A member of the RNA family "tRNA" from Cercospora berteroae, 92 nucleotides long. Rfam classes the family as a transfer RNA. Pairs were carried over by alignment from the consensus structure, which is taken from published work. About the family: Transfer RNA (tRNA) molecules are approximately 80 nucleotides in length. Lineage of the source: Eukaryota > Pezizomycotina > Dothideomycetidae > Mycosphaerellaceae > Cercospora.
[Rfam]
RNA sequence: UCCGAAAUGGUCUAGUGGCUAGGAUUUGUCGCUCUCAUUCAUUCGAUGAACGAGUACCCGACAAGGCCGGGGUUCAAUUCCCCGUUUCGGAA
Numbered sequence: 001u002c003c004g005a006a007a008u009g010g011u012c013u014a015g016u017g018g019c020u021a022g023g024a025u026u027u028g029u030c031g032c033u034c035u036c037a038u039u040c041a042u043u044c045g046a047u048g049a050a051c052g053a054g055u056a057c058c059c060g061a062c063a064a065g066g067c068c069g070g071g072g073u074u075c076a077a078u079u080c081c082c083c084g085u086u087u088c089g090g091a092a
Base pairs, nucleotide, nucleotide: 001091002090003089004088005087006086007085010025011024012023013022027063028062029061030060031059068084069083070082071081072080